[Rfam]
RNA sequence: GUGAAGUUGAUCACAAGCAAACAUACCCCUUUGUUUGACCGUGAAAAAUUUCUCCCAUCCCCUUUGUUCGUGUUGAAAGAGGCCUUGCAAACGCAAGGCCUCUUU
Number, nucleotide and partner (000 for none) at each position: 001g000002u000003g052004a051005a050006g049007u048008u047009g000010a000011u044012c043013a042014c041015a000016a000017g000018c037019a036020a035021a034022c033023a032024u000025a000026c000027c000028c000029c000030u000031u000032u023033g022034u021035u020036u019037g018038a000039c000040c000041g014042u013043g012044a011045a000046a000047a008048a007049u006050u005051u004052c003053u000054c000055c000056c000057a000058u000059c000060c000061c000062c000063u000064u000065u000066g000067u000068u000069c075070g000071u000072g000073u000074u000075g069076a000077a000078a000079g102080a101081g100082g099083c098084c097085u096086u095087g094088c093089a000090a000091a000092c000093g088094c087095a086096a085097g084098g083099c082100c081101u080102c079103u000104u000105u000